[Rfam]
RNA sequence: UAAUAGCCCUGAUAGAAGUGGAAAUCCUUUUGUUUUUUCCUUUAAAAAACAAAAGAUUGUAACAAAUAGCAGGAAAUAGC
Numbered sequence: 001u002a003a004u005a006g007c008c009c010u011g012a013u014a015g016a017a018g019u020g021g022a023a024a025u026c027c028u029u030u031u032g033u034u035u036u037u038u039c040c041u042u043u044a045a046a047a048a049a050c051a052a053a054a055g056a057u058u059g060u061a062a063c064a065a066a067u068a069g070c071a072g073g074a075a076a077u078a079g080c
Stems, first nucleotide, its partner, number of pairs: 009072003013068002018063002023058004029053010